[Rfam]
RNA sequence: GGAGGAGGCAUCCAAAGGGAUCGCAUUGAUCCUAAAUCUCAUAAUAGAGAGAGUAUAUAUUGAAAAAUUUUCAUACUUCUUCAAUUUUCUUAUCUAUUCCCCUACUAAUUGGGAUCAUGCUAUCCCUUUGGAUUCUUCCUU
Numbered sequence: 001g002g003a004g005g006a007g008g009c010a011u012c013c014a015a016a017g018g019g020a021u022c023g024c025a026u027u028g029a030u031c032c033u034a035a036a037u038c039u040c041a042u043a044a045u046a047g048a049g050a051g052a053g054u055a056u057a058u059a060u061u062g063a064a065a066a067a068u069u070u071u072c073a074u075a076c077u078u079c080u081u082c083a084a085u086u087u088u089c090u091u092a093u094c095u096a097u098u099c100c101c102c103u104a105c106u107a108a109u110u111g112g113g114a115u116c117a118u119g120c121u122a123u124c125c126c127u128u129u130g131g132a133u134u135c136u137u138c139c140u141u
Stems, first nucleotide, its partner, number of pairs: 002141005008135001010133012023120004028116005036109001
Overview: Rfam assigns this 141-nucleotide RNA from Senna tora to the family "mir-393 microRNA precursor family". The pairing is the family consensus, mapped onto this sequence. Gene Ontology terms of the family: miRNA-mediated post-transcriptional gene silencing and RISC complex. A search with the family's covariance model found it, with a score of 95 bits.